[Rfam]
RNA sequence: CCCCGUUCUCAGGGCGGGGUGGAAAUCCCCACCGGCGGUAAGCAGAAAUGCAAGCCCGCGAGCGCCUUCGCAAACCGAAGGGUCAGCAGAUCUGGUGCAAUUCCAGAGCCGACGGUGACAGUCCGGAUGGAAGAGAAUGUGC
Numbered sequence: 001c002c003c004c005g006u007u008c009u010c011a012g013g014g015c016g017g018g019g020u021g022g023a024a025a026u027c028c029c030c031a032c033c034g035g036c037g038g039u040a041a042g043c044a045g046a047a048a049u050g051c052a053a054g055c056c057c058g059c060g061a062g063c064g065c066c067u068u069c070g071c072a073a074a075c076c077g078a079a080g081g082g083u084c085a086g087c088a089g090a091u092c093u094g095g096u097g098c099a100a101u102u103c104c105a106g107a108g109c110c111g112a113c114g115g116u117g118a119c120a121g122u123c124c125g126g127a128u129g130g131a132a133g134a135g136a137a138u139g140u141g142c
Base pairs, nucleotide, nucleotide: 004139005138006137007136008135009134010133017029018028019027031122032121033111034110035059036058037057038056054109055108062087063086091107092106093105094104095103113125114124115123
RNA: FMN riboswitch aptamer (RFN element)